[Rfam]
The family of this 81-nucleotide RNA from Myotis myotis is "mir-574 microRNA precursor family".

RNA sequence: AGGCCUGAAGAGAGAGAGGCAGGGUCUGAUCUGCAGCCUCUGUGGCAGCUGUUAACCAGCUGUUGCCUCUCUCUUCCUCCG
Numbered sequence: 001a002g003g004c005c006u007g008a009a010g011a012g013a014g015a016g017a018g019g020c021a022g023g024g025u026c027u028g029a030u031c032u033g034c035a036g037c038c039u040c041u042g043u044g045g046c047a048g049c050u051g052u053u054a055a056c057c058a059g060c061u062g063u064u065g066c067c068u069c070u071c072u073c074u075u076c077c078u079c080c081g
Stems, first nucleotide, its partner, number of pairs: 010075013024061001026059003030055001034051004

The source organism's lineage runs through Eukaryota, Craniata, Teleostomi, Sarcopterygii and Myotis. It scores 83 bits against the family's covariance model. Its Rfam clan is "mir-574 microRNA precursor clan". Rfam links the family to the GO terms miRNA-mediated post-transcriptional gene silencing and RISC complex. On this family, see Lui et al., Cancer Res 2007: "Patterns of known and novel small RNAs in human cervical cancer".